[Rfam]
RNA: MIR2118 microRNA precursor family
Organism: Oryza glumipatula
Nucleotides: 163
Stems, first nucleotide, its partner, number of pairs: 009154004015148003020144003025139007037132010048120003052116001054115007
Number, partner (000 for none) and nucleotide at each position: 001000g002000u003000c004000g005000g006000g007000a008000a009154g010153a011152g012151g013000a014000a015148g016147a017146a018000a019000a020144g021143a022142g023000g024000g025139u026138c027137u028136a029135a030134g031133a032000g033000c034000a035000g036000u037132g038131g039130g040129c041128a042127u043126g044125g045124g046123a047000a048120c049119a050118u051000g052116g053000a054115g055114g056113a057112a058111g059110a060109a061000c062000a063000u064000g065000u066000a067000c068000u069000u070000u071000u072000c073000u074000u075000c076000c077000c078000u079000c080000u081000a082000a083000a084000u085000u086000u087000a088000g089000a090000g091000g092000u093000u094000g095000a096000g097000a098000u099000u100000u101000g102000c103000u104000a105000a106000g107000c108000a109060u110059u111058u112057u113056u114055c115054c116052c117000a118050a119049u120048g121000c122000c123046u124045c125044c126043c127042a128041u129040g130039c131038c132037u133031u134030c135029u136028u137027a138026g139025g140000u141000a142022c143021u144020c145000c146017u147016u148015c149000u150000c151012c152011u153010u154009c155000c156000u157000g158000u159000u160000g161000g162000c163000u